[Rfam]
RNA: tRNA
RNA sequence: GAUCCUGUAGCUCAGUUGGGAGAGCGCCACCUUGACAGGGUGGAGGUCGCUGGUUCGAACCCAGUCGGGGUCA
Numbered sequence: 001g002a003u004c005c006u007g008u009a010g011c012u013c014a015g016u017u018g019g020g021a022g023a024g025c026g027c028c029a030c031c032u033u034g035a036c037a038g039g040g041u042g043g044a045g046g047u048c049g050c051u052g053g054u055u056c057g058a059a060c061c062c063a064g065u066c067g068g069g070g071u072c073a
Stems, first nucleotide, its partner, number of pairs: 001072007010025004027043005049065005